Annotation:
Shown here is a 51-nucleotide RNA sequence, a member of the family "Glutamine riboswitch aptamer (glnA leader)". The base pairs follow the family's consensus structure, which is taken from published work.
RNA sequence: AUCGUUCAUCCCUAGUGGGACGGAAGUAAGUGAAUACUGAAGGAACGCGGC
Numbered sequence: 001a002u003c004g005u006u007c008a009u010c011c012c013u014a015g016u017g018g019g020a021c022g023g024a025a026g027u028a029a030g031u032g033a034a035u036a037c038u039g040a041a042g043g044a045a046c047g048c049g050g051c
Base pairs, nucleotide, nucleotide: 003047004046005045006044007043009020010019011018012017023048029038030037031036